Shown here is a 76-nucleotide RNA from Asbolus verrucosus, a member of the family "mir-980 microRNA precursor family". It scores 52 bits against the family's covariance model. Lineage of the source: Eukaryota > Bilateria > Arthropoda > Allotriocarida > Asbolus.
RNA sequence: GAUGCCGCAGGGCUCGUCAUGGGGUAGCUAGCGUGCUAUGUACGGCCAGCUGCCUUUUGAAGGGCAAUAUGGCAUG
Dot-bracket structure: ...((((.(..((((.(((...((...((.((............)).))...))...))).))))..).))))...
Numbered sequence: 001g002a003u004g005c006c007g008c009a010g011g012g013c014u015c016g017u018c019a020u021g022g023g024g025u026a027g028c029u030a031g032c033g034u035g036c037u038a039u040g041u042a043c044g045g046c047c048a049g050c051u052g053c054c055u056u057u058u059g060a061a062g063g064g065c066a067a068u069a070u071g072g073c074a075u076g
Stems, first nucleotide, its partner, number of pairs: 004073004009068001012065004017060003023054002028049002031046002